[Rfam]
RNA sequence: GGCCUCCCUCUGUGGGGCAGUCGAUUGUGGGGCCCCCAGAUCAAUCGUCCUGCAGAGGGAGGCC
Numbered sequence: 001g002g003c004c005u006c007c008c009u010c011u012g013u014g015g016g017g018c019a020g021u022c023g024a025u026u027g028u029g030g031g032g033c034c035c036c037c038a039g040a041u042c043a044a045u046c047g048u049c050c051u052g053c054a055g056a057g058g059g060a061g062g063c064c
Stems, first nucleotide, its partner, number of pairs: 001064018020045002023042004029036002
Description
Shown here is a 64-nucleotide RNA sequence from Myotis davidii, a member of the family "mir-9242 microRNA precursor family". Taxonomically the source falls in Myotis (Eukaryota, Bilateria, Chordata, Laurasiatheria). The family has 2 seed sequences and 940 matches in Rfam 15.1. Rfam links the family to the GO terms miRNA-mediated post-transcriptional gene silencing and RISC complex.